[Rfam]
RNA sequence: GGCGCUCGGCCGCCGAGUCCGCAGACCUGUGGAGCCGGGGACCCACCGUUCCUGGGGUGAAUCGGACGCCAGCCAGACUGCGCCCGUAGGGCACUUCCAGUCCCGAACCCGUCAGCUAACCCGGUAGGCGGCAUGGAAGCAAGGA
Numbered sequence: 001g002g003c004g005c006u007c008g009g010c011c012g013c014c015g016a017g018u019c020c021g022c023a024g025a026c027c028u029g030u031g032g033a034g035c036c037g038g039g040g041a042c043c044c045a046c047c048g049u050u051c052c053u054g055g056g057g058u059g060a061a062u063c064g065g066a067c068g069c070c071a072g073c074c075a076g077a078c079u080g081c082g083c084c085c086g087u088a089g090g091g092c093a094c095u096u097c098c099a100g101u102c103c104c105g106a107a108c109c110c111g112u113c114a115g116c117u118a119a120c121c122c123g124g125u126a127g128g129c130g131g132c133a134u135g136g137a138a139g140c141a142a143g144g145a
Base pairs, nucleotide, nucleotide: 011130012129013128014127018033019032020031021030022029034125035124036123037122038121039120044054045053055110056109057108063086064085065084089104090103091102